[Rfam]
RNA: msiK RNA
Organism: Leifsonia sp. AK011
RNA sequence: CCACCACUUCCAUUCACUACGGAUCGUCCGGCACGUACCUGCCGGUGAAGGAGUAAUAC
Numbered sequence: 001c002c003a004c005c006a007c008u009u010c011c012a013u014u015c016a017c018u019a020c021g022g023a024u025c026g027u028c029c030g031g032c033a034c035g036u037a038c039c040u041g042c043c044g045g046u047g048a049a050g051g052a053g054u055a056a057u058a059c
Stems, first nucleotide, its partner, number of pairs: 010051002013049004028045006